[Rfam]
RNA sequence: AAAGUGGCAUAUGCCACGGCUAUGGACUGGUUUAUGGCCGUCUGCUAUGCUUUU
Numbered sequence: 001a002a003a004g005u006g007g008c009a010u011a012u013g014c015c016a017c018g019g020c021u022a023u024g025g026a027c028u029g030g031u032u033u034a035u036g037g038c039c040g041u042c043u044g045c046u047a048u049g050c051u052u053u054u
Stems, first nucleotide, its partner, number of pairs: 001054003006051003010047002013045002016041005022035005
Editing element of GABA-3 exon 9: a 54-nucleotide RNA from Lepisosteus oculatus.
The organism belongs to Lepisosteus, within Eukaryota.
It is annotated as a cis-regulatory element.
Rfam 15.1 lists 4,208 matches to the family in 654 species.